[Rfam]
RNA sequence: AAAACCUUUUAAUGAAAGUCCAGAGAGGCUUGGAAGGGUUAUGAAGAGAAGGAAGCUUCAAUGCUGCCCUCUAUUUAACCAUACCCCGAGUCUAUCUUAGACCGGGGUUUUUUUUCA
Numbered sequence: 001a002a003a004a005c006c007u008u009u010u011a012a013u014g015a016a017a018g019u020c021c022a023g024a025g026a027g028g029c030u031u032g033g034a035a036g037g038g039u040u041a042u043g044a045a046g047a048g049a050a051g052g053a054a055g056c057u058u059c060a061a062u063g064c065u066g067c068c069c070u071c072u073a074u075u076u077a078a079c080c081a082u083a084c085c086c087c088g089a090g091u092c093u094a095u096c097u098u099a100g101a102c103c104g105g106g107g108u109u110u111u112u113u114u115u116c117a
Stems, first nucleotide, its partner, number of pairs: 003039001005037005016031005043076003047072003051068002054065003081110001083108006090102004

This 117-nucleotide sequence from Bacillus subtilis belongs to the Rfam family "PyrR binding site". It is one of the family's seed sequences. The base pairs follow the family's consensus structure, which is taken from published work. Taxonomically the source falls in Bacillus subtilis subsp. subtilis (Bacteria, Bacillota, Bacillaceae, Bacillus subtilis). This family represents the PyrR binding site and terminator structure. This RNA structure is found upstream of a variety of genes involved in pyrimidine biosynthesis and transport.